[Rfam]
A member of the RNA family "permuted transfer-messenger RNA" from a Pseudomonadota bacterium, 220 nucleotides long. The organism belongs to Pseudomonadota, within Bacteria. A reference for the family is Felden et al. (1997), "Probing the structure of the Escherichia coli 10Sa RNA (tmRNA)", RNA. Rfam's curators put it in the seed alignment. Its family is annotated with RNA catabolic process in the Gene Ontology. Bacterial tmRNA, also known as 10Sa RNA or SsrA, is named for its dual tRNA and mRNA-like properties. Its role is to liberate the mRNA from a stalled ribosome. To accomplish this part of the tmRNA is used as a reading frame that ends in a translation stop signal. The broken mRNA is replaced in the ribosome by the tmRNA and translation of the tmRNA leads to addition of a proteolysis tag to the incomplete protein enabling recognition by a protease. Recently a number of permuted tmRNA genes have been found encoded in two parts. tmRNAs have been identified in eubacteria and some chloroplasts but are absent from archaeal and eukaryote nuclear genomes. Pairs were carried over by alignment from the consensus structure, which is taken from published work. The family's RNA type in Rfam is non-coding RNA gene.
RNA sequence: GGCUGUAUGAAGCAAUGAGGAUGCGUUGCGGACGCGGGUUCGAGUCCCGCCAGCUCCACCACCUGGCUGUUGGGGGGCCAAUACCCAGGUGAAGGGGCUGUACUGGUUUCGACGUGGCGAGCAAUCUGCGUGGACAGCUCGAGAGGCGACCGACGUAAUCGGCGCAACAACCAUAAUCGCCAAUCAAGACGAUUAUCAUCAGGUCCGCAUGGCGGCCUGA
Number, nucleotide and partner (000 for none) at each position: 001g139002g138003c137004u136005g135006u000007a000008u000009g000010a000011a000012g129013c128014a127015a000016u000017g000018a000019g000020g000021a000022u000023g000024c119025g118026u117027u000028g115029c114030g113031g000032a000033c000034g050035c049036g048037g047038g046039u000040u000041c000042g000043a000044g000045u000046c038047c037048c036049g035050c034051c100052a099053g098054c097055u096056c095057c094058a000059c000060c000061a000062c000063c000064u000065g000066g000067c000068u000069g000070u000071u000072g000073g000074g000075g000076g000077g000078c000079c000080a000081a000082u000083a000084c000085c000086c000087a000088g000089g000090u000091g000092a000093a000094g057095g056096g055097g054098c053099u052100g051101u000102a000103c000104u000105g000106g000107u000108u000109u000110c000111g000112a000113c030114g029115u028116g000117g026118c025119g024120a000121g000122c000123a000124a000125u000126c000127u014128g013129c012130g000131u000132g000133g000134a000135c005136a004137g003138c002139u001140c155141g154142a000143g000144a000145g000146g000147c000148g000149a000150c000151c000152g000153a000154c141155g140156u000157a000158a000159u000160c000161g000162g000163c000164g000165c000166a000167a000168c000169a000170a000171c000172c000173a000174u000175a000176a000177u000178c000179g000180c000181c000182a000183a000184u000185c000186a000187a000188g000189a000190c000191g000192a000193u000194u000195a000196u000197c000198a000199u000200c000201a000202g000203g000204u000205c000206c000207g000208c000209a000210u000211g000212g000213c000214g000215g000216c000217c000218u000219g000220a000